[Rfam]
RNA sequence: CUCGUCCGUGUGGUGGACGCCCCUGACCGCCCGCCUCCGCUCCCGGCUACUCUUGCGGCGUGCGCCCUUCCAGGGAGCCCUGGGCCGACCGCCCGGGACCGCCGGGGAAGACGCAAAGCCGACAGCCGUCGCACCUCCAGGGAGCCCCUUCAUG
Numbered sequence: 001c002u003c004g005u006c007c008g009u010g011u012g013g014u015g016g017a018c019g020c021c022c023c024u025g026a027c028c029g030c031c032c033g034c035c036u037c038c039g040c041u042c043c044c045g046g047c048u049a050c051u052c053u054u055g056c057g058g059c060g061u062g063c064g065c066c067c068u069u070c071c072a073g074g075g076a077g078c079c080c081u082g083g084g085c086c087g088a089c090c091g092c093c094c095g096g097g098a099c100c101g102c103c104g105g106g107g108a109a110g111a112c113g114c115a116a117a118g119c120c121g122a123c124a125g126c127c128g129u130c131g132c133a134c135c136u137c138c139a140g141g142g143a144g145c146c147c148c149u150u151c152a153u154g
Stems, first nucleotide, its partner, number of pairs: 061115004067110004118132002121130003

A member of the RNA family "Streptomyces-metH RNA" from Streptomyces sp. SID625, 154 nucleotides long. By type it is a small RNA. Taxonomically the source falls in Streptomyces (Bacteria, Actinomycetes, Kitasatosporales, Streptomycetaceae). The base pairs follow the family's consensus structure, which is taken from published work.